[Rfam]
RNA: MIR2629 microRNA precursor family
Organism: Medicago truncatula
RNA sequence: UGCCGAAGUUUUCCUCGGAAGUUAACUGCAGUCGAUUUCGUAUUUCCUCGGCAGUUAACUACCGAGAAGUAU
Number, nucleotide and partner (000 for none) at each position: 001u000002g000003c000004c000005g000006a000007a000008g000009u000010u000011u000012u068013c000014c000015u065016c064017g063018g062019a000020a060021g059022u058023u057024a056025a055026c054027u053028g052029c051030a000031g000032u000033c000034g000035a000036u000037u000038u000039c000040g000041u000042a000043u000044u000045u000046c000047c000048u000049c000050g000051g029052c028053a027054g026055u025056u024057a023058a022059c021060u020061a000062c018063c017064g016065a015066g000067a000068a012069g000070u000071a000072u000